[Rfam]
RNA sequence: AGAAAGUGUACCUAGGGUUCCACACCGGCAAGCCGGUGGUUCGGUCCAAGCGGUACAGGCAGCGCCGGCCAGGCCGGGCGCGGCUACACCGGUCGGGAUAAAAGCCCAGGCGGG
Number, nucleotide and partner (000 for none) at each position: 001a000002g000003a000004a000005a000006g000007u057008g056009u055010a054011c053012c052013u000014a000015g047016g046017g000018u000019u000020c044021c043022a041023c038024a037025c036026c035027g034028g033029c000030a000031a000032g000033c028034c027035g026036g025037u024038g023039g000040u000041u022042c000043g021044g020045u000046c016047c015048a000049a000050g000051c000052g012053g011054u010055a009056c008057a007058g085059g084060c083061a000062g081063c080064g079065c078066c000067g000068g000069c000070c000071a000072g000073g000074c000075c000076g000077g000078g065079c064080g063081c062082g000083g060084c059085u058086a000087c109088a000089c112090c000091g000092g000093u000094c000095g107096g106097g105098a000099u000100a000101a000102a000103a000104g000105c097106c096107c095108a000109g087110g000111c000112g089113g000114g000
About this RNA
This 114-nucleotide sequence from Desulfoscipio geothermicus belongs to the Rfam family "Guanidine-I riboswitch aptamer". This family represents a conserved RNA structure found upstream of the ykkC and yxkD genes in Bacillus subtilis and related genes in other bacteria. The function of this family is unclear although it has been suggested that it may function to switch on efflux pumps and detoxification systems in response to harmful environmental molecules.